[Rfam]
RNA sequence: AGCCUUCUGUAUCCGUGCUGAGAUUUCGACACACACUAAACCACAAAGGUUGAUGAGACUUCCAAGACAAGUGAAGCG
Numbered sequence: 001a002g003c004c005u006u007c008u009g010u011a012u013c014c015g016u017g018c019u020g021a022g023a024u025u026u027c028g029a030c031a032c033a034c035a036c037u038a039a040a041c042c043a044c045a046a047a048g049g050u051u052g053a054u055g056a057g058a059c060u061u062c063c064a065a066g067a068c069a070a071g072u073g074a075a076g077c078g
Base pairs, nucleotide, nucleotide: 002077003076005074006073008071010069012067013066016064017063020061021060022059024058025057026056027055028054030052